Shown here is a 175-nucleotide sequence from Fusobacterium necrogenes, a member of the family "Lysine riboswitch aptamer". NCBI's taxonomy places the organism under Bacteria, Fusobacteriati, Fusobacteriota, Fusobacteriaceae, Fusobacterium. Riboswitches are metabolite binding domains within certain messenger RNAs that serve as precision sensors for their corresponding targets. The family's consensus secondary structure is taken from published work. A search with the family's covariance model found it, with a score of 103 bits.

[Rfam]
RNA sequence: AAAACAGAUUGAGGUGCAAUUGAUAAGAGUAAAAUUCAGGAGCUAUCCAAGCUAUGAAUGGAUUUGAAAGGUAAAAUUGCCGAAGUUUAAAUCUUUUGGAAAGAGAUUUUUACUGGGGAUAUGGAGAAUAUCCAUAUAACUGUCAUUGAGUUUUCAAUGUUGUGCUUUCUGUGAG
Numbered sequence: 001a002a003a004a005c006a007g008a009u010u011g012a013g014g015u016g017c018a019a020u021u022g023a024u025a026a027g028a029g030u031a032a033a034a035u036u037c038a039g040g041a042g043c044u045a046u047c048c049a050a051g052c053u054a055u056g057a058a059u060g061g062a063u064u065u066g067a068a069a070g071g072u073a074a075a076a077u078u079g080c081c082g083a084a085g086u087u088u089a090a091a092u093c094u095u096u097u098g099g100a101a102a103g104a105g106a107u108u109u110u111u112a113c114u115g116g117g118g119a120u121a122u123g124g125a126g127a128a129u130a131u132c133c134a135u136a137u138a139a140c141u142g143u144c145a146u147u148g149a150g151u152u153u154u155c156a157a158u159g160u161u162g163u164g165c166u167u168u169c170u171g172u173g174a175g
Base pairs, nucleotide, nucleotide: 006170007169008168011165016080017079018078019077020076021075032065033064034063035062036061037060038059084114085113086112089109090108091107092106093105094104095103115141116140119137120136121135122134123133124132125131144159145158146157147156148155149154